RNA sequence: UCUAAAACCUAAGAUAUGGGUUGAACACUAAACAGUAUCUGAGCUGCAGGACAGAUUUGAACUUCUCUUUCGAUGCUAAGAUUUGGACUUCCAAACAAUAGAAUUGAGUCUUAGACUCUUCAUGAAUGUUUUAGGUCUAUGUCUUAGCUUUCUAAC
Numbered sequence: 001u002c003u004a005a006a007a008c009c010u011a012a013g014a015u016a017u018g019g020g021u022u023g024a025a026c027a028c029u030a031a032a033c034a035g036u037a038u039c040u041g042a043g044c045u046g047c048a049g050g051a052c053a054g055a056u057u058u059g060a061a062c063u064u065c066u067c068u069u070u071c072g073a074u075g076c077u078a079a080g081a082u083u084u085g086g087a088c089u090u091c092c093a094a095a096c097a098a099u100a101g102a103a104u105u106g107a108g109u110c111u112u113a114g115a116c117u118c119u120u121c122a123u124g125a126a127u128g129u130u131u132u133a134g135g136u137c138u139a140u141g142u143c144u145u146a147g148c149u150u151u152c153u154a155a156c
Stems, first nucleotide, its partner, number of pairs: 003154002006151002008147001011145010021134005027129002035123002041119001043117001045115001048112005054105005060099001063097001072088001074086001
About this RNA:
Rfam assigns this 156-nucleotide RNA from Populus tomentosa to the family "MIR2912 microRNA precursor family". The source organism's lineage runs through Eukaryota, Mesangiospermae, eudicotyledons, Pentapetalae and Populus.